[Rfam]
RNA: tRNA
RNA sequence: GCGGUUAUGGUGAAGUUGGUUAACACGCCUGAUUGUGGCUCAGGUAUUUUCGCGGGUUCGAGUCCCGUUAAUCGCC
Numbered sequence: 001g002c003g004g005u006u007a008u009g010g011u012g013a014a015g016u017u018g019g020u021u022a023a024c025a026c027g028c029c030u031g032a033u034u035g036u037g038g039c040u041c042a043g044g045u046a047u048u049u050u051c052g053c054g055g056g057u058u059c060g061a062g063u064c065c066c067g068u069u070a071a072u073c074g075c076c
Base pairs, nucleotide, nucleotide: 001075002074003073004072005071006070007069010026011025012024028044029043030042031041032040052068053067054066055065056064